Overview:
MIR2629 microRNA precursor family: a 71-nucleotide RNA from Medicago truncatula. Gene Ontology terms of the family: miRNA-mediated post-transcriptional gene silencing and RISC complex. A search with the family's covariance model found it, with a score of 62 bits.

RNA sequence: UGUUCAGUUCGCAUCGGCAGUUAACUGCCGCCGGUUUUCUAAAACUUCGGUAGUUAACUGCCGAAGGGCAU
Dot-bracket structure: ...........(.(((((((((((((((((.................))))))))))))))))).).....